[Rfam]
RNA sequence: CAACGUGUUCCGGGGUCGGUGGAAGUCCGAACCGGCGGUCACAGUCCGCGAACCGGACGAGUGCCCACGCGCAGGUGCCAGCACCUGCCGGGGGUUCCCGUCCGGCCGAACCGGUGGAACUCCGGUACCGACAGUCACAGUCUGGAUGGAAGGCAACACGUGC
Dot-bracket structure: ..((((((((......(((.......))).[[((((((.....[[))))...(((((((.......................................)))))))....(((((.......)))))]])).(((.....]]))).......)..)))))))..
Numbered sequence: 001c002a003a004c005g006u007g008u009u010c011c012g013g014g015g016u017c018g019g020u021g022g023a024a025g026u027c028c029g030a031a032c033c034g035g036c037g038g039u040c041a042c043a044g045u046c047c048g049c050g051a052a053c054c055g056g057a058c059g060a061g062u063g064c065c066c067a068c069g070c071g072c073a074g075g076u077g078c079c080a081g082c083a084c085c086u087g088c089c090g091g092g093g094g095u096u097c098c099c100g101u102c103c104g105g106c107c108g109a110a111c112c113g114g115u116g117g118a119a120c121u122c123c124g125g126u127a128c129c130g131a132c133a134g135u136c137a138c139a140g141u142c143u144g145g146a147u148g149g150a151a152g153g154c155a156a157c158a159c160g161u162g163c
Stems, first nucleotide, its partner, number of pairs: 003161007010152001017029003031141002033130002035049004044128002053105007110126005132144003
Background: The family of this 163-nucleotide sequence from Kocuria dechangensis is "FMN riboswitch aptamer (RFN element)". The organism belongs to Kocuria, within Bacteria. The RFN element is a highly conserved domain that is found frequently in the 5'-untranslated regions of prokaryotic mRNAs that encode for flavin mononucleotide (FMN) biosynthesis and transport proteins. It scores 82 bits against the family's covariance model.